[Rfam]
RNA: Bacterial RNase P class A
RNA sequence: CCGGGGAGCCGGGCAGCCGCGACACCUGAUCCGUCAGGUGGCGAGGAAAGUCCGGGCUCCACGAAACAAGGGUGGCGGGUAACGCCCGCCGGUCUCUGGCCUUCGGGCCCGGGGCAAGGGAAAGUGCCACAGAGAGCAGACCGCCGUCUGCCGGGCAACCGGCAGGGCAAGGGUGAAAGGGUGCGGCAAGAGCGCACCGCGCGACUGGCAACAGGAGCGGCAUGGCAAACCCCACCCGGAGCAAGACCGAAUAGGGGCUGCGUUCCGGCUUGACCGGAGGGUCGGUUUCGGACCCAGGCAGCUCGGGUUGGUCGCUGGAGCGGCGCGGCAACGUGUCGCCAAGAGGAAUGGCUGCCGCCUUGCGUAAGGUCCCUGAUUUGGGAGACCACGCAGGGACACAGAACCCGGCUUACAGGCUCCCCGGCGAA
Number, nucleotide and partner (000 for none) at each position: 001c424002c423003g422004g421005g420006g419007a418008g417009c416010c415011g413012g356013g355014c354015a353016g352017c351018c350019g000020c043021g042022a000023c040024a039025c038026c037027u036028g035029a000030u000031c000032c000033g000034u000035c028036a027037g026038g025039u024040g023041g000042c021043g020044a000045g000046g000047a000048a411049a410050g409051u000052c408053c407054g406055g405056g404057c241058u240059c239060c238061a000062c000063g000064a000065a288066a287067c000068a000069a000070g237071g236072g235073u234074g233075g089076c088077g087078g086079g085080u000081a000082a000083c000084g000085c079086c078087c077088g076089c075090c118091g000092g115093u114094c113095u112096c111097u000098g000099g000100c000101c000102u000103u000104c000105g000106g000107g000108c000109c000110c000111g096112g095113g094114g093115c092116a000117a000118g090119g232120g231121a000122a000123a000124g230125u229126g226127c225128c224129a000130c000131a000132g000133a000134g000135a000136g000137c000138a000139g000140a000141c172142c171143g168144c167145c166146g000147u000148c000149u164150g163151c162152c161153g160154g159155g000156c000157a000158a000159c154160c153161g152162g151163c150164a149165g000166g145167g144168c143169a000170a000171g142172g141173g000174u000175g000176a000177a000178a000179g000180g198181g197182u196183g195184c194185g193186g000187c000188a000189a000190g000191a000192g000193c185194g184195c183196a182197c181198c180199g221200c219201g218202c217203g000204a000205c214206u213207g212208g000209c000210a000211a000212c207213a206214g205215g000216a000217g202218c201219g200220g000221c199222a000223u000224g128225g127226c126227a000228a000229a125230c124231c120232c119233c074234a073235c072236c071237c070238g060239g059240a058241g057242c000243a000244a000245g313246a312247c311248c310249g000250a000251a000252u000253a000254g000255g304256g303257g302258c301259u300260g299261c000262g000263u000264u000265c000266c000267g000268g000269c000270u000271u000272g000273a000274c000275c000276g000277g000278a000279g295280g294281g293282u292283c291284g000285g000286u000287u066288u065289c000290g000291g283292a282293c281294c280295c279296a000297g000298g000299c260300a259301g258302c257303u256304c255305g000306g000307g000308u000309u000310g248311g247312u246313c245314g000315c000316u000317g000318g000319a000320g339321c338322g337323g336324c335325g334326c333327g332328g000329c000330a000331a000332c327333g326334u325335g324336u323337c322338g321339c320340c000341a000342a000343g000344a000345g000346g000347a000348a000349u000350g018351g017352c016353u015354g014355c013356c012357g000358c000359c000360u000361u000362g000363c000364g000365u000366a000367a000368g000369g000370u000371c000372c000373c000374u000375g000376a000377u000378u000379u000380g000381g000382g000383a000384g000385a000386c000387c000388a000389c000390g000391c000392a000393g000394g000395g000396a000397c000398a000399c000400a000401g000402a000403a000404c056405c055406c054407g053408g052409c050410u049411u048412a000413c011414a000415g010416g009417c008418u007419c006420c005421c004422c003423g002424g001425c000426g000427a000428a000